[Rfam]
RNA: Small nucleolar RNA SNORD90
Organism: Bucco capensis
RNA sequence: GCUAGUUCUCUUUUUGUGUCUUAUGAUGAAGCUUCAUAGGGCAGAUUCUGAGCUGAGAAAUAAAAUUUCUCUCCACUGAUUCUCUCGGUAUGCCAUCUGAAGACACUAUUGCAUUU
Dot-bracket structure: .............(.((((((.........(...(((.(((..(..((.(.(..(((((.......)))))..).).)))..)))....)))...)....)))))).)........